[Rfam]
Small nucleolar RNA SNORA63: a 128-nucleotide RNA from Callorhinchus milii. Lineage of the source: Eukaryota > Bilateria > Craniata > Chimaeriformes > Callorhinchus. For this family Rfam cites "Three small nucleolar RNAs that are involved in ribosomal RNA precursor processing" (Mishra and Eliceiri, Proc Natl Acad Sci U S A, 1997). It is annotated as an H/ACA-box small nucleolar RNA. Pairs were carried over by alignment from the consensus structure, which was predicted with PFOLD. About the family: E3 belongs to the H/ACA class of snoRNAs and is involved in the processing of eukaryotic pre-rRNA and has regions of complementarity to 18S rRNA. E3 is encoded in introns in the gene for protein synthesis initiation factor 4AII.
RNA sequence: UGGCAGGUUAAGUUACAGCUGAGCUGUUUAGUGCUGUGCUGUCGUUCCCCCUGCAGAUAUUGAGUUGUUUCAUACUAUCCCUGACUGCUUUCUUCAUCCAGCUGGCAGGGACGCUUGGGCACAUACAU
Numbered sequence: 001u002g003g004c005a006g007g008u009u010a011a012g013u014u015a016c017a018g019c020u021g022a023g024c025u026g027u028u029u030a031g032u033g034c035u036g037u038g039c040u041g042u043c044g045u046u047c048c049c050c051c052u053g054c055a056g057a058u059a060u061u062g063a064g065u066u067g068u069u070u071c072a073u074a075c076u077a078u079c080c081c082u083g084a085c086u087g088c089u090u091u092c093u094u095c096a097u098c099c100a101g102c103u104g105g106c107a108g109g110g111a112c113g114c115u116u117g118g119g120c121a122c123a124u125a126c127a128u
Base pairs, nucleotide, nucleotide: 003054004053005052006051007050015042016041017040018039019038022035023034024033080109081108082107083106085104087102088101
Dot-bracket structure: ..(((((.......(((((..(((........)))..))))).......))))).........................((((.(.((............)).).))))...................